RNA sequence: AUUUCUUUUAACAUAUCAGGAAGUCGAAUUAGCAAUGAAAAAAAGAAGUAGGAAGUCGAAAGCCAUCAUUAUCUAUAACUAAAACCCAUAAACCCAUAACAUACUUCUUUCUUCAUUGCUAAUUCGACUUCUUGAUAUGUUAAAAGAAAU
Dot-bracket structure: ...(((((((((((((((.((((((((((((.(((((((..((((((.((.(.....(....................................)....).)).)))))).))))))).)))))))))))).)))))))))))))))...
Numbered sequence: 001a002u003u004u005c006u007u008u009u010a011a012c013a014u015a016u017c018a019g020g021a022a023g024u025c026g027a028a029u030u031a032g033c034a035a036u037g038a039a040a041a042a043a044a045g046a047a048g049u050a051g052g053a054a055g056u057c058g059a060a061a062g063c064c065a066u067c068a069u070u071a072u073c074u075a076u077a078a079c080u081a082a083a084a085c086c087c088a089u090a091a092a093c094c095c096a097u098a099a100c101a102u103a104c105u106u107c108u109u110u111c112u113u114c115a116u117u118g119c120u121a122a123u124u125c126g127a128c129u130u131c132u133u134g135a136u137a138u139g140u141u142a143a144a145a146g147a148a149a150u
Stems, first nucleotide, its partner, number of pairs: 004147015020131012033118007042110006049103002052100001058095001